Rfam assigns this 81-nucleotide sequence from Myotis davidii to the family "mir-574 microRNA precursor family".
A search with the family's covariance model found it, with a score of 89 bits.
The family has 6 seed sequences and 4,084 matches in Rfam 15.1.
RNA sequence: AGGCCUGGAGAGAGAAGCAGAGUCUGAUCCACGGCCUCUGUGGCAGUUGCUGAUCAGCCCUUGCCUCUCUCUCUCUCUCUG
Numbered sequence: 001a002g003g004c005c006u007g008g009a010g011a012g013a014g015a016a017g018c019a020g021a022g023u024c025u026g027a028u029c030c031a032c033g034g035c036c037u038c039u040g041u042g043g044c045a046g047u048u049g050c051u052g053a054u055c056a057g058c059c060c061u062u063g064c065c066u067c068u069c070u071c072u073c074u075c076u077c078u079c080u081g
Stems, first nucleotide, its partner, number of pairs: 008073008017064004022059001024057006032049004

Background:
A reference for the family is Lui et al. (2007), "Patterns of known and novel small RNAs in human cervical cancer", Cancer Res. Gene Ontology terms of the family: miRNA-mediated post-transcriptional gene silencing and RISC complex. NCBI's taxonomy places the organism under Eukaryota, Eumetazoa, Mammalia, Chiroptera, Myotis.